[Rfam]
The record is a 278-nucleotide sequence from Enterococcus rotai, which matches "Listeria sRNA rli117" in Rfam. Pairs were carried over by alignment from the consensus structure, which was predicted with RNAfold. By type it is a small RNA. Coevolved with internalin genes lmo0549, lmo0263, lmo02470. The organism belongs to Enterococcus, within Bacteria.

Nucleotides: 278
Stems, first nucleotide, its partner, number of pairs: 002038001005035002008031003014025004042277003050066001052064005071118003075114007087105001089103002120262005134142001153204001155202004165192006172185001214257003217253004230242002
Number, partner (000 for none) and nucleotide at each position: 001000u002038g003000a004000a005035g006034u007000a008031g009030a010029g011000a012000a013000g014025g015024u016023u017022u018000g019000a020000a021000a022017g023016a024015a025014c026000a027000a028000a029010u030009u031008c032000a033000a034006a035005u036000g037000c038002u039000a040000a041000a042277g043276u044275a045000a046000a047000c048000g049000g050066u051000g052064g053063g054062c055061a056060u057000g058000u059000u060056a061055u062054g063053c064052u065000g066050a067000a068000a069000a070000g071118g072117u073116u074000a075114g076113a077112g078111g079110g080109a081108u082000a083000a084000g085000c086000g087105a088000a089103g090102g091000u092000a093000c094000u095000a096000g097000c098000u099000a100000u101000u102090u103089u104000g105087u106000g107000a108081g109080u110079u111078c112077c113076u114075c115000g116073g117072g118071c119000a120262c121261u122260a123259u124258c125000a126000a127000a128000a129000a130000c131000a132000c133000a134142u135000g136000c137000c138000c139000a140000a141000u142134a143000a144000a145000g146000a147000a148000a149000g150000u151000c152000a153204a154000u155202a156201g157200c158199g159000a160000c161000g162000u163000u164000a165192g166191g167190a168189g169188a170187g171000c172185c173000u174000a175000g176000c177000g178000g179000u180000c181000u182000a183000u184000u185172g186000a187170c188169u189168u190167u191166c192165u193000u194000u195000a196000u197000a198000g199158u200157g201156u202155u203000u204153u205000a206000c207000g208000g209000a210000u211000u212000a213000g214257a215256a216255g217253a218252g219251u220250u221000a222000u223000u224000u225000u226000u227000c228000u229000c230242a231241u232000u233000u234000u235000c236000u237000u238000u239000c240000u241231g242230u243000u244000u245000c246000c247000u248000u249000g250220a251219a252218c253217u254000a255216c256215u257214u258124g259123a260122u261121g262120g263000a264000a265000a266000a267000a268000a269000u270000u271000a272000u273000g274000a275044u276043a277042c278000g